[Rfam]
RNA sequence: ACCCUCCAGAUCCCUUUCCCAUCAGAUCUGAAUACCGAUCUUGUGGUCAAAAAAGGAGGAAAAAUAAAAUUCUGACUGGUCUGGGGCUCUUUGCUGGUGCUGUCCUGCUCUGUGAGGGACCAGUUGGAAGACAGGC
Numbered sequence: 001a002c003c004c005u006c007c008a009g010a011u012c013c014c015u016u017u018c019c020c021a022u023c024a025g026a027u028c029u030g031a032a033u034a035c036c037g038a039u040c041u042u043g044u045g046g047u048c049a050a051a052a053a054a055g056g057a058g059g060a061a062a063a064a065u066a067a068a069a070u071u072c073u074g075a076c077u078g079g080u081c082u083g084g085g086g087c088u089c090u091u092u093g094c095u096g097g098u099g100c101u102g103u104c105c106u107g108c109u110c111u112g113u114g115a116g117g118g119a120c121c122a123g124u125u126g127g128a129a130g131a132c133a134g135g136c
Stems, first nucleotide, its partner, number of pairs: 003059005019046003023043001025040004076123007